The record is a 137-nucleotide RNA from Caenorhabditis auriculariae, which matches "Caenorhabditis snoRNA ceN84" in Rfam. It scores 90 bits against the family's covariance model. For this family Rfam cites "Systematic identification of non-coding RNA 2,2,7-trimethylguanosine cap structures in Caenorhabditis elegans" (Jia et al., BMC Mol Biol, 2007).

[Rfam]
RNA sequence: ACGCCACAGUGUCUGGGCAAAGUAGGCUUUUUUCGUCGAAGCACUAACUUAAUCCACUGAUGGCUAGAUAAUAUUUGCAGAGGUAAUCCCUGUCGAUUCAUUGAUGAAUACUUCAGUUUCAUGACUUUGCAACAAUC
Numbered sequence: 001a002c003g004c005c006a007c008a009g010u011g012u013c014u015g016g017g018c019a020a021a022g023u024a025g026g027c028u029u030u031u032u033u034c035g036u037c038g039a040a041g042c043a044c045u046a047a048c049u050u051a052a053u054c055c056a057c058u059g060a061u062g063g064c065u066a067g068a069u070a071a072u073a074u075u076u077g078c079a080g081a082g083g084u085a086a087u088c089c090c091u092g093u094c095g096a097u098u099c100a101u102u103g104a105u106g107a108a109u110a111c112u113u114c115a116g117u118u119u120c121a122u123g124a125c126u127u128u129g130c131a132a133c134a135a136u137c
Stems, first nucleotide, its partner, number of pairs: 003064003007059004015055003020050003023046003026042005076131001078129001080127002083125002090116003096109005